[Rfam]
RNA sequence: UAGCAAGCCUCCAGCACAUGUGGGCUAGCUGUGACUCUGUGCAUUCCUACAGUGUGUGCUGGAACAUUCUCCAAACGGUUUGAGGCAUUGCCCUGCUCCAUCCAGAGCAAGGUUAUUGAACUUUUCAGAACAU
Numbered sequence: 001u002a003g004c005a006a007g008c009c010u011c012c013a014g015c016a017c018a019u020g021u022g023g024g025c026u027a028g029c030u031g032u033g034a035c036u037c038u039g040u041g042c043a044u045u046c047c048u049a050c051a052g053u054g055u056g057u058g059c060u061g062g063a064a065c066a067u068u069c070u071c072c073a074a075a076c077g078g079u080u081u082g083a084g085g086c087a088u089u090g091c092c093c094u095g096c097u098c099c100a101u102c103c104a105g106a107g108c109a110a111g112g113u114u115a116u117u118g119a120a121c122u123u124u125u126c127a128g129a130a131c132a133u
Base pairs, nucleotide, nucleotide: 003059004058005057007055008054019041022037023036024035026033073124074123075122086112088110089109090108091107093105094104095103

Record summary: The family of this 133-nucleotide sequence from Oryctolagus cuniculus is "Small nucleolar RNA SNORA9". About the family: ACA9 is a member of the H/ACA class of snoRNA that guide the sites of modification of uridines to pseudouridines. Gene Ontology terms of the family: RNA processing and nucleolus. Pairs were carried over by alignment from the consensus structure, which was predicted with PFOLD.